[Rfam]
Nucleotides: 141
Stems, first nucleotide, its partner, number of pairs: 008025007026070003030067002034063005043054004074104008087124005109139006116132002
Number, partner (000 for none) and nucleotide at each position: 001000u002000u003000u004000u005000a006000a007000c008025u009024u010023a011022a012021g013020a014019g015000g016000c017000a018000a019014c020013u021012c022011u023010u024009a025008a026070c027069u028068g029000g030067c031066c032000a033000a034063c035062u036061a037060a038059g039000g040000a041000a042000a043054a044053a045052c046051c047000g048000a049000g050000a051046g052045g053044u054043u055000c056000a057000a058000g059038c060037u061036u062035a063034g064000g065000g066031g067030g068028c069027a070026g071000a072000a073000a074104a075103c076102u077101c078100u079099a080098c081097g082000g083000a084000g085000u086000a087124g088123c089122g090121c091120u092000a093000a094000a095000a096000u097081c098080g099079u100078a101077g102076a103075g104074u105000g106000g107000u108000a109139g110138g111137c112136a113135u114134g115000g116132c117131g118000g119000u120091a121090g122089c123088g124087c125000a126000u127000a128000a129000a130000a131117c132116g133000a134114c135113g136112u137111g138110c139109c140000a141000a